Nucleotides: 052
Stems, first nucleotide, its partner, number of pairs: 006048001008046005014040003018036004022031001
Number, partner (000 for none) and nucleotide at each position: 001000a002000u003000c004000u005000u006048a007000a008046u009045a010044u011043a012042g013000g014040u015039a016038u017000g018036u019035c020034c021033c022031a023000u024000g025000u026000a027000a028000u029000a030000g031022u032000u033021g034020g035019g036018a037000c038016a039015u040014a041000u042012u043011u044010a045009u046008a047000c048006u049000a050000a051000a052000a

Notes
mir-1302 microRNA precursor family: a 52-nucleotide sequence from Callithrix jacchus. The family's consensus secondary structure was predicted with WAR. The source organism's lineage runs through Eukaryota, Vertebrata, Amniota, Haplorrhini and Callithrix. Rfam 15.1 lists 16,160 matches to the family in 135 species.